[Rfam]
About this RNA
Rfam assigns this 70-nucleotide RNA from Crateriforma conspicua to the family "int-alpA RNA". NCBI's taxonomy places the organism under Bacteria, Pseudomonadati, Planctomycetota, Pirellulaceae, Crateriforma. The family's consensus secondary structure is taken from published work. About the family: Acidobacteria (1 example), Planctomycetes (1 example), Proteobacteria.

RNA sequence: GCGACGGCUAGGGUAGCUCCCGAAAACCGGCAUCAUCACCGGCCGCCGUCGCGUUUUCUUUCCUUUGAUG
Dot-bracket structure: ((((((((..(((.....))).....((((..[..[..))))..))))))))..............]..]